[Rfam]
RNA sequence: UACAUGCACUCUGGAGAGUCUCAAAGGAAGAGCGCCGAAGGUGUACGACAGCAUCGCUGUUUAUCUCUCAGGCAAAAGGACAGAGAAUACGUG
Numbered sequence: 001u002a003c004a005u006g007c008a009c010u011c012u013g014g015a016g017a018g019u020c021u022c023a024a025a026g027g028a029a030g031a032g033c034g035c036c037g038a039a040g041g042u043g044u045a046c047g048a049c050a051g052c053a054u055c056g057c058u059g060u061u062u063a064u065c066u067c068u069c070a071g072g073c074a075a076a077a078g079g080a081c082a083g084a085g086a087a088u089a090c091g092u093g
Base pairs, nucleotide, nucleotide: 006088009085010084011083012082013081020032021031022030034073035072036071037069038068041067043065047062048061